[Rfam]
RNA sequence: GUUCCCAAUGAUGCCUCUGUUAACCAUGCUAAUGCUGAAAUACUUUGAAGAUAAUUUGUCGUUUGACCUGAGGGAACC
Number, nucleotide and partner (000 for none) at each position: 001g077002u076003u075004c074005c073006c000007a000008a000009u000010g000011a000012u000013g000014c000015c000016u000017c000018u000019g000020u000021u000022a000023a000024c000025c000026a000027u000028g000029c000030u000031a000032a000033u000034g000035c000036u000037g000038a000039a000040a000041u000042a000043c000044u000045u000046u000047g000048a000049a000050g000051a000052u000053a000054a000055u000056u000057u000058g000059u000060c000061g000062u000063u000064u000065g000066a000067c000068c000069u000070g000071a000072g000073g005074g004075a003076a002077c001078c000

Source information
Small nucleolar RNA snoR53Y: a 78-nucleotide sequence from Musa troglodytarum. Lineage of the source: Eukaryota > Streptophytina > Mesangiospermae > Liliopsida > Musa. On this family, see Brown et al., RNA 2001: "Multiple snoRNA gene clusters from Arabidopsis". It is annotated as a C/D-box small nucleolar RNA. The match comes from Rfam's covariance-model search (55 bits).